Record summary:
The record is a 66-nucleotide RNA from Canis lupus, which matches "Small nucleolar RNA SNORD82" in Rfam. Rfam's curators put it in the seed alignment. From the family's description: snoRNA U82 or Z25 is found in both humans and mice. The organism belongs to Canis lupus, within Eukaryota. Its family is annotated with nucleolus and RNA processing in the Gene Ontology.
RNA sequence: UGCACAAGUGAUGAACAACAAAGGGACUUAAUACUGAUACCUGAUGUAAUACGAUGUCUGAUGUGC
Numbered sequence: 001u002g003c004a005c006a007a008g009u010g011a012u013g014a015a016c017a018a019c020a021a022a023g024g025g026a027c028u029u030a031a032u033a034c035u036g037a038u039a040c041c042u043g044a045u046g047u048a049a050u051a052c053g054a055u056g057u058c059u060g061a062u063g064u065g066c
Stems, first nucleotide, its partner, number of pairs: 002066005